[Rfam]
RNA sequence: GCCGUGAUCGUAUAGGGGUUAGUACUCUGCGUUGUGGCCGCAGCAACCUCGGUUCGAAUCCGAGUCACGGCA
Numbered sequence: 001g002c003c004g005u006g007a008u009c010g011u012a013u014a015g016g017g018g019u020u021a022g023u024a025c026u027c028u029g030c031g032u033u034g035u036g037g038c039c040g041c042a043g044c045a046a047c048c049u050c051g052g053u054u055c056g057a058a059u060c061c062g063a064g065u066c067a068c069g070g071c072a
Stems, first nucleotide, its partner, number of pairs: 001071007010025004027043005048064005
RNA: tRNA